The record is a 70-nucleotide RNA from Triplophysa tibetana, which matches "mir-10 microRNA precursor family" in Rfam. A reference for the family is Ambros (2001), "microRNAs: tiny regulators with great potential", Cell. Taxonomically the source falls in Triplophysa (Eukaryota, Actinopterygii, Neopterygii, Clupeocephala). It scores 75 bits against the family's covariance model.
RNA sequence: UGCCACAAACCCGUAGAUCCGAACUUGUGGUGACUCUGAGCACAAGCUCGUAUCUAUAGGUAUGUGUCUG
Numbered sequence: 001u002g003c004c005a006c007a008a009a010c011c012c013g014u015a016g017a018u019c020c021g022a023a024c025u026u027g028u029g030g031u032g033a034c035u036c037u038g039a040g041c042a043c044a045a046g047c048u049c050g051u052a053u054c055u056a057u058a059g060g061u062a063u064g065u066g067u068c069u070g
Stems, first nucleotide, its partner, number of pairs: 002068001004066004010060002015055004020050003024046006